The record is a 101-nucleotide RNA sequence from Tenuibacillus multivorans, which matches "Guanidine-I riboswitch aptamer" in Rfam. It scores 92 bits against the family's covariance model. NCBI's taxonomy places the organism under Bacteria, Bacilli, Caryophanales, Bacillaceae, Tenuibacillus. From the family's description: This family represents a conserved RNA structure found upstream of the ykkC and yxkD genes in Bacillus subtilis and related genes in other bacteria.
RNA sequence: CCAUAAGUUUUCUAGGGUUCCGCAAGUGGCAUUCAUUUGGUCUGGUCCGAGAGAAAACGCACGGAUUUUCCGUGACACGGAGGGACAAAAGCCCGGGAGAU
Numbered sequence: 001c002c003a004u005a006a007g008u009u010u011u012c013u014a015g016g017g018u019u020c021c022g023c024a025a026g027u028g029g030c031a032u033u034c035a036u037u038u039g040g041u042c043u044g045g046u047c048c049g050a051g052a053g054a055a056a057a058c059g060c061a062c063g064g065a066u067u068u069u070c071c072g073u074g075a076c077a078c079g080g081a082g083g084g085a086c087a088a089a090a091g092c093c094c095g096g097g098a099g100a101u
Stems, first nucleotide, its partner, number of pairs: 007058006015048002020045002022042001023039006060074005076096001078099001082094003